[Rfam]
A member of the RNA family "mir-252 microRNA precursor family" from Musca domestica, 79 nucleotides long. On this family, see Li et al., BMC Genomics 2009: "Direct sequencing and expression analysis of a large number of miRNAs in Aedes aegypti and a multi-species survey of novel mosquito miRNAs". The match comes from Rfam's covariance-model search (70 bits). The family has 44 seed sequences and 422 matches in Rfam 15.1. Clan: mir-252 microRNA precursor family. Pairs were carried over by alignment from the consensus structure, which was predicted with RNAalifold.
RNA sequence: UCACUUUUCUAAGUACUAGUGCCGCAGGAUAUGGUUGCUAUGAUAAAAGCUCCUGCUGCCCAAGUGCUUAUCAAAGAGA
Numbered sequence: 001u002c003a004c005u006u007u008u009c010u011a012a013g014u015a016c017u018a019g020u021g022c023c024g025c026a027g028g029a030u031a032u033g034g035u036u037g038c039u040a041u042g043a044u045a046a047a048a049g050c051u052c053c054u055g056c057u058g059c060c061c062a063a064g065u066g067c068u069u070a071u072c073a074a075a076g077a078g079a
Stems, first nucleotide, its partner, number of pairs: 001079002004076004010070008019061001024056006
Dot-bracket structure: ((.((((..((((((((.(....((((((.....................))))))....).))))))))..)))).))